[Rfam]
RNA sequence: ACAGACUGAAAAUGAUCCCUGGUUUCUCAGUGAUUUGGGAUCAGACAACUGUGCCCACAGUAAUGUGGUACGUUUAGCUUAUUGCGAGUGCUUCUGUGUCUGUGCAAUAAAACCCAUGUACCAACAGCC
Numbered sequence: 001a002c003a004g005a006c007u008g009a010a011a012a013u014g015a016u017c018c019c020u021g022g023u024u025u026c027u028c029a030g031u032g033a034u035u036u037g038g039g040a041u042c043a044g045a046c047a048a049c050u051g052u053g054c055c056c057a058c059a060g061u062a063a064u065g066u067g068g069u070a071c072g073u074u075u076a077g078c079u080u081a082u083u084g085c086g087a088g089u090g091c092u093u094c095u096g097u098g099u100c101u102g103u104g105c106a107a108u109a110a111a112a113c114c115c116a117u118g119u120a121c122c123a124a125c126a127g128c129c
Stems, first nucleotide, its partner, number of pairs: 005052002008049001013043004021035004067122001069120005079110005087101002
Shown here is a 129-nucleotide RNA from Takifugu bimaculatus, a member of the family "Small nucleolar RNA ACA64". For this family Rfam cites "A computational screen for mammalian pseudouridylation guide H/ACA RNAs" (Schattner et al., RNA, 2006). The match comes from Rfam's covariance-model search (73 bits). The source organism's lineage runs through Eukaryota, Craniata, Euteleosteomorpha, Neoteleostei and Takifugu.